[Rfam]
RNA sequence: GGGGAUAAACGACGGCGUGCAAUAGGCGCAGCGGACCCGGGGGCGGUACCCGGCGGCUCCACCAUAAACCCCGGAAACGGGGCUUCUGACGGGGCCGAACUAGGAUCGACGUGUGUUGAAAAGCGCUAACUAUCUCUCGGCGUGGGCCACCGUGACGGUCCAUUACACAAGUGCCAACGAUAACGAAGCACUCGCUAUUGCGGCGUAA
Numbered sequence: 001g002g003g004g005a006u007a008a009a010c011g012a013c014g015g016c017g018u019g020c021a022a023u024a025g026g027c028g029c030a031g032c033g034g035a036c037c038c039g040g041g042g043g044c045g046g047u048a049c050c051c052g053g054c055g056g057c058u059c060c061a062c063c064a065u066a067a068a069c070c071c072c073g074g075a076a077a078c079g080g081g082g083c084u085u086c087u088g089a090c091g092g093g094g095c096c097g098a099a100c101u102a103g104g105a106u107c108g109a110c111g112u113g114u115g116u117u118g119a120a121a122a123g124c125g126c127u128a129a130c131u132a133u134c135u136c137u138c139g140g141c142g143u144g145g146g147c148c149a150c151c152g153u154g155a156c157g158g159u160c161c162a163u164u165a166c167a168c169a170a171g172u173g174c175c176a177a178c179g180a181u182a183a184c185g186a187a188g189c190a191c192u193c194g195c196u197a198u199u200g201c202g203g204c205g206u207a208a
Base pairs, nucleotide, nucleotide: 001137002136003135004134005133014126027115028114029113031112032111033110037053038052039051040050041049054097055096056095057094058093059092060091138152139151140150
RNA: permuted transfer-messenger RNA